[Rfam]
This 91-nucleotide RNA sequence from Streptomyces benahoarensis belongs to the Rfam family "sodF sRNA". NCBI's taxonomy places the organism under Bacteria, Bacillati, Actinomycetota, Streptomycetaceae, Streptomyces.
RNA sequence: GCGUCCUGCCUCGUGAUCGUCUUCUCACCCUUCACCCGGCAGGCGGAAGAACGGCGGGGGCCCCCGAGGACGUGACUCGCGGGGCCCCGCC
Numbered sequence: 001g002c003g004u005c006c007u008g009c010c011u012c013g014u015g016a017u018c019g020u021c022u023u024c025u026c027a028c029c030c031u032u033c034a035c036c037c038g039g040c041a042g043g044c045g046g047a048a049g050a051a052c053g054g055c056g057g058g059g060g061c062c063c064c065c066g067a068g069g070a071c072g073u074g075a076c077u078c079g080c081g082g083g084g085c086c087c088c089g090c091c
Base pairs, nucleotide, nucleotide: 002045003044005043006042007041008040009039010038013035014034015033016032019029053091054090055089056088057087058086059085061083062082063081065079066078067077068076